[Rfam]
RNA sequence: AAUAUAUCAGAGCAAACCUUCUAAAAGGAAGGGACGCAAAGCCAUGGGUCUAAAGAUUGUUAACAUCUAUGAUUGCCAGGUUGCACAC
Numbered sequence: 001a002a003u004a005u006a007u008c009a010g011a012g013c014a015a016a017c018c019u020u021c022u023a024a025a026a027g028g029a030a031g032g033g034a035c036g037c038a039a040a041g042c043c044a045u046g047g048g049u050c051u052a053a054a055g056a057u058u059g060u061u062a063a064c065a066u067c068u069a070u071g072a073u074u075g076c077c078a079g080g081u082u083g084c085a086c087a088c
Stems, first nucleotide, its partner, number of pairs: 012037002017032006040082004045078003048073003055067003

c-di-GMP-I riboswitch aptamer: an 88-nucleotide RNA from Sporomusa termitida.
The base pairs follow the family's consensus structure, which is taken from published work.
A search with the family's covariance model found it, with a score of 72 bits.